Description
The family of this 84-nucleotide RNA from Dicentrarchus labrax is "Small nucleolar RNA SNORD35". Rfam 15.1 lists 1,842 matches to the family in 634 species. Its family is annotated with nucleolus and RNA processing in the Gene Ontology. By type it is a C/D-box small nucleolar RNA. Lineage of the source: Eukaryota > Metazoa > Euacanthomorphacea > Eupercaria > Dicentrarchus. U35 is a C/D box snoRNA located in intron 6 of ribosomal protein L13A and intron 3 of ribosomal protein S11 in humans and at homologous positions in mouse and chicken ribosomal protein genes. U35 guides the methylation of 2'-O-ribose sites in 28S rRNA.

[Rfam]
RNA sequence: UGCAAAUGAUGUUUUUCUCACGAUGGUCUUCCAAGCCCUCUGGGUUCUGACGACGAUGCCUUAUGGCAACGCUGAUGUAGUGGA
Numbered sequence: 001u002g003c004a005a006a007u008g009a010u011g012u013u014u015u016u017c018u019c020a021c022g023a024u025g026g027u028c029u030u031c032c033a034a035g036c037c038c039u040c041u042g043g044g045u046u047c048u049g050a051c052g053a054c055g056a057u058g059c060c061u062u063a064u065g066g067c068a069a070c071g072c073u074g075a076u077g078u079a080g081u082g083g084a
Stems, first nucleotide, its partner, number of pairs: 001079004